[Rfam]
RNA sequence: GAGGGUGAACUUAGAACCCUCAGCUUGUUGUGUGUUAAUAGUGUAACUUUUGGCCGAGUCGCAUGGUUAGUGAAUC
Numbered sequence: 001g002a003g004g005g006u007g008a009a010c011u012u013a014g015a016a017c018c019c020u021c022a023g024c025u026u027g028u029u030g031u032g033u034g035u036u037a038a039u040a041g042u043g044u045a046a047c048u049u050u051u052g053g054c055c056g057a058g059u060c061g062c063a064u065g066g067u068u069a070g071u072g073a074a075u076c
Stems, first nucleotide, its partner, number of pairs: 001021006035070005041064004046059004
RNA: L13-Bacteroidia ribosomal protein leader
Organism: Prevotella disiens